[Rfam]
RNA sequence: GUGGCCAUGAUGAGAAAACGAUUCAAUGAUGUACGAAUGAAAUUAAUCUCAUACAUCGCAAUGCUCUGAGCCAC
Numbered sequence: 001g002u003g004g005c006c007a008u009g010a011u012g013a014g015a016a017a018a019c020g021a022u023u024c025a026a027u028g029a030u031g032u033a034c035g036a037a038u039g040a041a042a043u044u045a046a047u048c049u050c051a052u053a054c055a056u057c058g059c060a061a062u063g064c065u066c067u068g069a070g071c072c073a074c
Stems, first nucleotide, its partner, number of pairs: 001074005
RNA: Small nucleolar RNA Z169
Organism: Oryza meyeriana